A member of the RNA family "GRIK4 3 prime UTR element" from Callithrix jacchus, 90 nucleotides long. A reference for the family is Pickard et al. (2008), "A common variant in the 3'UTR of the GRIK4 glutamate receptor gene affects transcript abundance and protects against bipolar disorder", Proc Natl Acad Sci U S A. Rfam 15.1 lists 71 matches to the family in 67 species.
RNA sequence: UAGCCCCGGCGGCUGCAGGACGCGCGGAGGCCGGCCGGGCGGGAGGGGCGGGGCGGGCGCCGCUGUCCGCCGAGAGCUCGGACUUGUACA
Numbered sequence: 001u002a003g004c005c006c007c008g009g010c011g012g013c014u015g016c017a018g019g020a021c022g023c024g025c026g027g028a029g030g031c032c033g034g035c036c037g038g039g040c041g042g043g044a045g046g047g048g049c050g051g052g053g054c055g056g057g058c059g060c061c062g063c064u065g066u067c068c069g070c071c072g073a074g075a076g077c078u079c080g081g082a083c084u085u086g087u088a089c090a
Base pairs, nucleotide, nucleotide: 003049004048005047006046007045011032012031013030014029

Overview
It scores 79 bits against the family's covariance model.